[Rfam]
RNA sequence: AGCCCUCUGGUGAGUACCACAGGCUGUGUUCUUAUACUGACUGUACAGAAAGAAGAGGCAUAGUAAAUCUACCCAUAUACACCAAAGCCCAGGAGCUUUGUCUGGUUUGUAUUGUGAAUGGGGGCAUGG
Numbered sequence: 001a002g003c004c005c006u007c008u009g010g011u012g013a014g015u016a017c018c019a020c021a022g023g024c025u026g027u028g029u030u031c032u033u034a035u036a037c038u039g040a041c042u043g044u045a046c047a048g049a050a051a052g053a054a055g056a057g058g059c060a061u062a063g064u065a066a067a068u069c070u071a072c073c074c075a076u077a078u079a080c081a082c083c084a085a086a087g088c089c090c091a092g093g094a095g096c097u098u099u100g101u102c103u104g105g106u107u108u109g110u111a112u113u114g115u116g117a118a119u120g121g122g123g124g125c126a127u128g129g
Stems, first nucleotide, its partner, number of pairs: 002059003006055001008053001020043003026037004073121004086108002089105005
Description
Shown here is a 129-nucleotide RNA sequence from Crocuta crocuta, a member of the family "Small nucleolar RNA SNORA51". The family's consensus secondary structure was predicted with PFOLD. The family has 9 seed sequences and 2,121 matches in Rfam 15.1. About the family: ACA51 is a member of the H/ACA class of snoRNA that guide the sites of modification of uridines to pseudouridines. Gene Ontology terms of the family: RNA processing and nucleolus.